[Rfam]
RNA sequence: GGAUCGAUGAUGACAACAAGUCUCUGAGGACGCUGAUAGACCUGUACUAUGCCGCUAUGAGCUCC
Number, nucleotide and partner (000 for none) at each position: 001g065002g064003a063004u000005c061006g000007a000008u000009g000010a000011u000012g000013a000014c000015a000016a000017c000018a000019a000020g000021u000022c000023u000024c000025u000026g000027a000028g000029g000030a000031c000032g000033c000034u000035g000036a000037u000038a000039g000040a000041c000042c000043u000044g000045u000046a000047c000048u000049a000050u000051g000052c000053c000054g000055c000056u000057a000058u000059g000060a000061g005062c000063u003064c002065c001
RNA: Small nucleolar RNA SNORD109A